[Rfam]
RNA sequence: AUGAGGUUUGAAUCCAUGUUUCGUUCUUCUCGCCUAAUCAGUCUACUACUAAACGCAUACAGUUUUGCGCGGUAGACUUGUGGGCGGAAUCAAACACUGAUUCAAACCUGCUGAAAGUUAAAAACCCGCGCCUGUCGCGGGUUUUUUU
Numbered sequence: 001a002u003g004a005g006g007u008u009u010g011a012a013u014c015c016a017u018g019u020u021u022c023g024u025u026c027u028u029c030u031c032g033c034c035u036a037a038u039c040a041g042u043c044u045a046c047u048a049c050u051a052a053a054c055g056c057a058u059a060c061a062g063u064u065u066u067g068c069g070c071g072g073u074a075g076a077c078u079u080g081u082g083g084g085c086g087g088a089a090u091c092a093a094a095c096a097c098u099g100a101u102u103c104a105a106a107c108c109u110g111c112u113g114a115a116a117g118u119u120a121a122a123a124a125c126c127c128g129c130g131c132c133u134g135u136c137g138c139g140g141g142u143u144u145u146u147u148u
Stems, first nucleotide, its partner, number of pairs: 004109001006107005012101003016098001017096003030087006046075005054069004121145010